Overview: The family of this 119-nucleotide sequence from Niastella vici is "Group II catalytic intron D1-D4-2". The base pairs follow the family's consensus structure. From the family's description: Group II introns are found in rRNA, tRNA and mRNA of organelles in fungi, plants and protists, and also in mRNA in bacteria. On this family, see Bonen and Vogel, Trends Genet 2001: "The ins and outs of group II introns".

[Rfam]
RNA sequence: GAUAGUCCCCCCAUCGUAAUCUGCCAAUUGGUGAUGGUAAUAAACUGCCUUUAUGCUACUGCGGUUAAAUGCUGUGGUAGUGAGCAAUAAAGGAAAUGGCACUUUAAAGAUGUCAGGAG
Numbered sequence: 001g002a003u004a005g006u007c008c009c010c011c012c013a014u015c016g017u018a019a020u021c022u023g024c025c026a027a028u029u030g031g032u033g034a035u036g037g038u039a040a041u042a043a044a045c046u047g048c049c050u051u052u053a054u055g056c057u058a059c060u061g062c063g064g065u066u067a068a069a070u071g072c073u074g075u076g077g078u079a080g081u082g083a084g085c086a087a088u089a090a091a092g093g094a095a096a097u098g099g100c101a102c103u104u105u106a107a108a109g110a111u112g113u114c115a116g117g118a119g
Stems, first nucleotide, its partner, number of pairs: 001015003005011001016041002019038003024033001045119002049092006055081002058078003062074004097115005